A member of the RNA family "mir-87 microRNA precursor family" from Elysia chlorotica, 72 nucleotides long. NCBI's taxonomy places the organism under Eukaryota, Bilateria, Protostomia, Mollusca, Elysia. For this family Rfam cites "Temporal regulation of microRNA expression in Drosophila melanogaster mediated by hormonal signals and broad-Complex gene activity" (Sempere et al., Dev Biol, 2003). The family's consensus secondary structure was predicted with RNAalifold.
RNA sequence: AGUGGGUGUGCCUGAAACCUUGGCUCAGGCCUGGCGAUAAGAAGGUGAGCAAAGUUUCAGGUGUAUCUGCUU
Dot-bracket structure: .((((((.(((((((.((.((..((((..(((..........))))))).)).)).))))))).))))))..
Numbered sequence: 001a002g003u004g005g006g007u008g009u010g011c012c013u014g015a016a017a018c019c020u021u022g023g024c025u026c027a028g029g030c031c032u033g034g035c036g037a038u039a040a041g042a043a044g045g046u047g048a049g050c051a052a053a054g055u056u057u058c059a060g061g062u063g064u065a066u067c068u069g070c071u072u
Stems, first nucleotide, its partner, number of pairs: 002070006009063007017055002020052002024049004030045003